[Rfam]
The record is a 96-nucleotide sequence from Genlisea aurea, which matches "Small nucleolar RNA R44/J54/Z268 family" in Rfam. Clan: SNORD74 clan. Gene Ontology terms of the family: RNA processing and nucleolus.
RNA sequence: UUUGCAGAUGAUGUUGAAACAGACAGGGACAUCAGAACUCUGUUACAGACAGAGUGUUGUAUGAUGAUUUGUCUUUGGGAAUCUCUCUGAUGCAUA
Numbered sequence: 001u002u003u004g005c006a007g008a009u010g011a012u013g014u015u016g017a018a019a020c021a022g023a024c025a026g027g028g029a030c031a032u033c034a035g036a037a038c039u040c041u042g043u044u045a046c047a048g049a050c051a052g053a054g055u056g057u058u059g060u061a062u063g064a065u066g067a068u069u070u071g072u073c074u075u076u077g078g079g080a081a082u083c084u085c086u087c088u089g090a091u092g093c094a095u096a
Stems, first nucleotide, its partner, number of pairs: 003094004